[Rfam]
RNA: Burkholderia sRNA 1
RNA sequence: AGUUCUGAUGCACCGAAUUUGCAGGUGGAGAACGAGGAGACAACUGAGGCACAAAGUGCCCGGACACGGAAGCGCUGUUGGAUGAACGUCCAACAGCGCUUUUCA
Numbered sequence: 001a002g003u004u005c006u007g008a009u010g011c012a013c014c015g016a017a018u019u020u021g022c023a024g025g026u027g028g029a030g031a032a033c034g035a036g037g038a039g040a041c042a043a044c045u046g047a048g049g050c051a052c053a054a055a056g057u058g059c060c061c062g063g064a065c066a067c068g069g070a071a072g073c074g075c076u077g078u079u080g081g082a083u084g085a086a087c088g089u090c091c092a093a094c095a096g097c098g099c100u101u102u103u104c105a
Base pairs, nucleotide, nucleotide: 002033003032004031005030009029011027012026013025014024015022037067039065044063045062046061048060049059050058051057052056069102070101071100072099073098074097075096076095077094078093079092080091081090082089